RNA sequence: GGUUCAUGAUGACACAUGACCUUGUCUGAACAUAAUGAUUUCAAAAUUUGAGCUUAAAUUCUCCUUGUUUUUUUUUUUUAAUU
Numbered sequence: 001g002g003u004u005c006a007u008g009a010u011g012a013c014a015c016a017u018g019a020c021c022u023u024g025u026c027u028g029a030a031c032a033u034a035a036u037g038a039u040u041u042c043a044a045a046a047u048u049u050g051a052g053c054u055u056a057a058a059u060u061c062u063c064c065u066u067g068u069u070u071u072u073u074u075u076u077u078u079u080a081a082u083u
Stems, first nucleotide, its partner, number of pairs: 001083004